Shown here is a 93-nucleotide sequence from Effrenium voratum, a member of the family "Small nucleolar RNA snR60/Z15/Z230/Z193/J17".
The family has 23 seed sequences and 3,592 matches in Rfam 15.1.
The pairing is the family consensus, mapped onto this sequence.
Lineage of the source: Eukaryota > Sar > Alveolata > Symbiodiniaceae > Effrenium.
Rfam classes the family as a C/D-box small nucleolar RNA.
A reference for the family is Lowe and Eddy (1999), "A computational screen for methylation guide snoRNAs in yeast", Science.
Its family is annotated with nucleolus and RNA processing in the Gene Ontology.
RNA sequence: UGUGAGGCUGUGAAGAGGCACACAAGUGCAUAGUUCACUCGGAGAAGCAUGACGAUAGCUUUUAACGUCUUUCGCUCCUAUCUGAGCCUCAAG
Numbered sequence: 001u002g003u004g005a006g007g008c009u010g011u012g013a014a015g016a017g018g019c020a021c022a023c024a025a026g027u028g029c030a031u032a033g034u035u036c037a038c039u040c041g042g043a044g045a046a047g048c049a050u051g052a053c054g055a056u057a058g059c060u061u062u063u064a065a066c067g068u069c070u071u072u073c074g075c076u077c078c079u080a081u082c083u084g085a086g087c088c089u090c091a092a093g
Stems, first nucleotide, its partner, number of pairs: 004090005
Dot-bracket structure: ...(((((.............................................................................)))))...